[Rfam]
Rfam assigns this 72-nucleotide RNA sequence from Anhinga anhinga to the family "Small nucleolar RNA SNORD58". About the family: snoRNA U58 is found in introns 1, 3 and 6 of the ribosomal protein RPL17 gene in humans. Its Rfam clan is "SNORD58 clan". NCBI's taxonomy places the organism under Eukaryota, Chordata, Coelurosauria, Aequornithes, Anhinga.
RNA sequence: UGGCAGUGAUGACUGAUCUUAGGACACCUUUGGAUUGACCGUGAAAUAAAAAAUACCUUCUUUCUGAGCCAU
Numbered sequence: 001u002g003g004c005a006g007u008g009a010u011g012a013c014u015g016a017u018c019u020u021a022g023g024a025c026a027c028c029u030u031u032g033g034a035u036u037g038a039c040c041g042u043g044a045a046a047u048a049a050a051a052a053a054u055a056c057c058u059u060c061u062u063u064c065u066g067a068g069c070c071a072u
Stems, first nucleotide, its partner, number of pairs: 001071004
By type it is a C/D-box small nucleolar RNA.